[Rfam]
RNA sequence: UUCGUUCAUCUCCAGCCUGUUAAGACAUUUUUCUCUCUUAAUGAAGGCUUGGAGACGGAAGUAAGGAAAAUUCCUGAAGGAACGCGCC
Numbered sequence: 001u002u003c004g005u006u007c008a009u010c011u012c013c014a015g016c017c018u019g020u021u022a023a024g025a026c027a028u029u030u031u032u033c034u035c036u037c038u039u040a041a042u043g044a045a046g047g048c049u050u051g052g053a054g055a056c057g058g059a060a061g062u063a064a065g066g067a068a069a070a071u072u073c074c075u076g077a078a079g080g081a082a083c084g085c086g087c088c
Stems, first nucleotide, its partner, number of pairs: 003084005009055007058085001064075003

Rfam assigns this 88-nucleotide RNA sequence from Synechococcales cyanobacterium C42_A2020_086 to the family "Glutamine riboswitch aptamer (glnA leader)".
NCBI's taxonomy places the organism under Bacteria, Bacillati, Cyanobacteriota, Cyanophyceae, Synechococcales.
On this family, see Ames and Breaker, RNA Biol 2011: "Bacterial aptamers that selectively bind glutamine".